[Rfam]
RNA: Small nucleolar RNA SNORA17
Organism: Mus musculus
RNA sequence: CCUGUCCCUAGAGGUGUUGCAGGUGUAGCUGCUGUGACACAUAUGAGUCAGGAGGUGGCAGAGAGAAGAGAGGCUAUGUAGGCUCAGUGUUCUGAGCUGUGAAUUUCUGAAUGAUUAGUUGCCUAACACU
Dot-bracket structure: .((((((((...(((....((..(((..(......)..)))..)).)))...))).)))))......(..((((.((....(.((((.((((........))))..)))).).....)).))))..)...